Shown here is a 57-nucleotide RNA from Leucobacter exalbidus, a member of the family "msiK RNA".
The family's RNA type in Rfam is cis-regulatory element.
The source organism's lineage runs through Bacteria, Bacillati, Actinomycetes, Microbacteriaceae and Leucobacter.
The base pairs follow the family's consensus structure, which is taken from published work.
A search with the family's covariance model found it, with a score of 58 bits.
[Rfam]
RNA sequence: AGCCGCCGGCUUCACAACGGAUCGUCCGGCACGUACCUGCCGGUGGAGGAAAAGAAA
Number, nucleotide and partner (000 for none) at each position: 001a000002g000003c000004c000005g000006c000007c000008g000009g000010c048011u047012u046013c045014a044015c000016a000017a000018c000019g000020g000021a000022u000023c000024g000025u000026c043027c042028g041029g040030c039031a038032c000033g000034u000035a000036c000037c000038u031039g030040c029041c028042g027043g026044u014045g013046g012047a011048g010049g000050a000051a000052a000053a000054g000055a000056a000057a000